A member of the RNA family "Small nucleolar RNA SNORD53/SNORD92" from Echinops telfairi, 87 nucleotides long. Rfam classes the family as a C/D-box small nucleolar RNA. Rfam links the family to the GO terms nucleolus and RNA processing. The sequence is in the family's curated seed alignment.
Nucleotides: 087
Base pairs, nucleotide, nucleotide: 003086004085005084006083
Number, partner (000 for none) and nucleotide at each position: 001000c002000g003086g004085u005084g006083c007000u008000g009000u010000g011000a012000u013000g014000a015000u016000g017000c018000c019000u020000u021000a022000a023000a024000a025000u026000u027000g028000u029000g030000g031000u032000u033000u034000c035000a036000a037000c038000u039000c040000a041000c042000u043000g044000a045000g046000a047000g048000u049000a050000a051000a052000u053000g054000a055000a056000g057000a058000c059000u060000u061000a062000c063000a064000a065000u066000u067000c068000c069000u070000u071000g072000g073000c074000u075000g076000u077000g078000u079000c080000u081000g082000a083006g084005c085004a086003c087000c